[Rfam]
RNA sequence: GAUUGCGAUGAUGACUCACGAAAUUCAAGCUCAACAGACCGGAAUGCAGGGUUUUUCUUUUUAUUUAUGGAGAAAAACUUUGCGUGUCGAUAUUCCCGCUGAACUGAGUGAUC
Number, nucleotide and partner (000 for none) at each position: 001g113002a112003u111004u110005g109006c108007g000008a000009u000010g000011a000012u000013g000014a000015c000016u000017c000018a000019c000020g000021a000022a000023a000024u000025u000026c000027a000028a000029g000030c000031u000032c000033a000034a000035c000036a000037g000038a000039c000040c000041g000042g000043a000044a000045u000046g000047c000048a000049g000050g000051g000052u000053u000054u000055u000056u000057c000058u000059u000060u000061u000062u000063a000064u000065u000066u000067a000068u000069g000070g000071a000072g000073a000074a000075a000076a000077a000078c000079u000080u000081u000082g000083c000084g000085u000086g000087u000088c000089g000090a000091u000092a000093u000094u000095c000096c000097c000098g000099c000100u000101g000102a000103a000104c000105u000106g000107a000108g006109u005110g004111a003112u002113c001
This 113-nucleotide sequence from Salix brachista belongs to the Rfam family "Small nucleolar RNA Z107/R87". The family's RNA type in Rfam is C/D-box small nucleolar RNA. Gene Ontology terms of the family: nucleolus and RNA processing. It scores 89 bits against the family's covariance model. Pairs were carried over by alignment from the consensus structure, which was predicted with RNAfold.